[Rfam]
This 79-nucleotide RNA sequence from Megalops atlanticus belongs to the Rfam family "mir-19 microRNA precursor family".
RNA sequence: UGGCAGCGGUCAGUUUUGCAGGUUUGCAUCCAGCGUUUGAAAAUCUGCUGUGCAAAUCCAUGCAAAACUCGCUGUGCCU
Dot-bracket structure: ..(((.((((.((((((((((((((((((..(((............)))))))))).)).))))))))).)))))))..
Numbered sequence: 001u002g003g004c005a006g007c008g009g010u011c012a013g014u015u016u017u018g019c020a021g022g023u024u025u026g027c028a029u030c031c032a033g034c035g036u037u038u039g040a041a042a043a044u045c046u047g048c049u050g051u052g053c054a055a056a057u058c059c060a061u062g063c064a065a066a067a068c069u070c071g072c073u074g075u076g077c078c079u
Stems, first nucleotide, its partner, number of pairs: 003077003007074004012069009021059002023056007032049003
Annotation
The family's consensus secondary structure was predicted with RNAalifold. The family is grouped with related families in Rfam's "mir-19 clan". NCBI's taxonomy places the organism under Eukaryota, Bilateria, Actinopterygii, Elopiformes, Megalops.